[Rfam]
RNA: mir-692 microRNA precursor family
RNA sequence: GGUGGCAGGGCCACAACCAGCGCAGACUGGCGCGCCCCAGGGAUCUCUGGGCGAGUAUCUCUUUGAGCGCCUCACUCUCAAGCACGACUAGGAGGCCUCUGUGCCUUCC
Numbered sequence: 001g002g003u004g005g006c007a008g009g010g011c012c013a014c015a016a017c018c019a020g021c022g023c024a025g026a027c028u029g030g031c032g033c034g035c036c037c038c039a040g041g042g043a044u045c046u047c048u049g050g051g052c053g054a055g056u057a058u059c060u061c062u063u064u065g066a067g068c069g070c071c072u073c074a075c076u077c078u079c080a081a082g083c084a085c086g087a088c089u090a091g092g093a094g095g096c097c098u099c100u101g102u103g104c105c106u107u108c109c
Stems, first nucleotide, its partner, number of pairs: 001109002004105002006101003009097004014092001020085001022083002024078003028074003032070004036065001039062006045055003